[Rfam]
RNA: Bacterial large subunit ribosomal RNA, nucleotides 1738 to 2090
Organism: Spirochaeta africana
RNA sequence: CGGGAGAACUCGCGUUAAGGAACUCGGCAAAAUGCAUACGUAACUUCGGGAUAAGUAUGGCCUGGUCUGGAUCUUCACCGGUUUAGACCAGGUUGCAAUAAAAUGGCCAAAGCGACUGUUUACCAAAAACACAGGUCUCUGCGAAAUCGUAAGAUGACGUAUAGGGACUGACACCUGCCCGGUGCCGGAAGGUUAAGAGGAGCGGUUAGUUUUCGAACGAAGCUGUGAAUUGAAGCCCCGGUAAACGGCGGCCGUAACUAUAACGGUCCUAAGGUAGCGAAAUUCCUUGUCGGGUAAGUUCCGACCCGCACGAAUGGUGUAACGACUUUGGCACUGUCUCAACGCGAGACCCG
Numbered sequence: 001c002g003g004g005a006g007a008a009c010u011c012g013c014g015u016u017a018a019g020g021a022a023c024u025c026g027g028c029a030a031a032a033u034g035c036a037u038a039c040g041u042a043a044c045u046u047c048g049g050g051a052u053a054a055g056u057a058u059g060g061c062c063u064g065g066u067c068u069g070g071a072u073c074u075u076c077a078c079c080g081g082u083u084u085a086g087a088c089c090a091g092g093u094u095g096c097a098a099u100a101a102a103a104u105g106g107c108c109a110a111a112g113c114g115a116c117u118g119u120u121u122a123c124c125a126a127a128a129a130c131a132c133a134g135g136u137c138u139c140u141g142c143g144a145a146a147u148c149g150u151a152a153g154a155u156g157a158c159g160u161a162u163a164g165g166g167a168c169u170g171a172c173a174c175c176u177g178c179c180c181g182g183u184g185c186c187g188g189a190a191g192g193u194u195a196a197g198a199g200g201a202g203c204g205g206u207u208a209g210u211u212u213u214c215g216a217a218c219g220a221a222g223c224u225g226u227g228a229a230u231u232g233a234a235g236c237c238c239c240g241g242u243a244a245a246c247g248g249c250g251g252c253c254g255u256a257a258c259u260a261u262a263a264c265g266g267u268c269c270u271a272a273g274g275u276a277g278c279g280a281a282a283u284u285c286c287u288u289g290u291c292g293g294g295u296a297a298g299u300u301c302c303g304a305c306c307c308g309c310a311c312g313a314a315u316g317g318u319g320u321a322a323c324g325a326c327u328u329u330g331g332c333a334c335u336g337u338c339u340c341a342a343c344g345c346g347a348g349a350c351c352c353g
Base pairs, nucleotide, nucleotide: 001353002352003351004350009348010347011346012345013344014343015342016341018339019338020337035059036058037057038056039055044049060093061092062091063090064089065088066087067086068085069084070083071082072081073080094098106332107331108330109329110328111327112326113324114323117131118130119129134169135168136167137166138165139164140163141162142159146155147154148153172319173318174317175316177249178248179247182246183245184242185241186240187239188238191237192236193235197231198230202226203225204224205223206222209218210217250268251267252266253265254264255263269273279306289305290304291303292302293301294300